[Rfam]
Nucleotides: 125
Base pairs, nucleotide, nucleotide: 007119009117010116011115012114013113020028021027030105031104032103033101034100037099038098039097043092044091045090046089
Number, partner (000 for none) and nucleotide at each position: 001000g002000g003000a004000c005000a006000a007119a008000c009117c010116u011115c012114u013113g014000g015000a016000g017000a018000g019000a020028c021027u022000u023000u024000u025000a026000u027021a028020g029000c030105a031104c032103c033101g034100a035000a036000g037099g038098a039097g040000a041000a042000a043092g044091c045090u046089a047000a048000a049000c050000c051000g052000u053000a054000u055000u056000u057000a058000a059000u060000u061000g062000c063000a064000u065000a066000u067000u068000c069000u070000a071000u072000g073000u074000g075000a076000u077000u078000g079000a080000g081000u082000g083000c084000u085000g086000g087000a088000a089046u090045a091044g092043u093000g094000a095000a096000g097039c098038u099037c100034u101033c102000a103032g104031g105030u106000a107000a108000a109000a110000g111000g112000a113013c114012a115011g116010g117009g118000u119007u120000a121000u122000u123000u124000u125000u